The record is a 70-nucleotide sequence from Alligator mississippiensis, which matches "Mammalian CPEB3 ribozyme" in Rfam. The match comes from Rfam's covariance-model search (49 bits).
Nucleotides: 070
Base pairs, nucleotide, nucleotide: 010043011042012041013040018070019069020068021067022066023065024064025037027035047059048058049057050056051055
Number, partner (000 for none) and nucleotide at each position: 001000a002000g003000a004000g005000g006000g007000c008000c009000a010043g011042g012041g013040g014000c015000c016000a017000u018070a019069g020068u021067a022066g023065a024064a025037g026000u027035g028000u029000u030000c031000a032000u033000g034000u035027u036000c037025c038000a039000a040013c041012c042011c043010c044000u045000a046000u047059c048058a049057g050056g051055u052000a053000a054000g055051a056050c057049c058048u059047g060000c061000a062000a063000a064024u065023u066022c067021u068020g069019c070018u
Rfam describes the family as follows. The mammalian CPEB3 ribozyme is a self cleaving RNA located in the second intron of the CPEB3 gene which belongs to a family of genes regulating messenger RNA polyadenylation. The source organism's lineage runs through Eukaryota, Eumetazoa, Sarcopterygii, Sauria and Alligator. Its family is annotated with RNA nuclease activity in the Gene Ontology.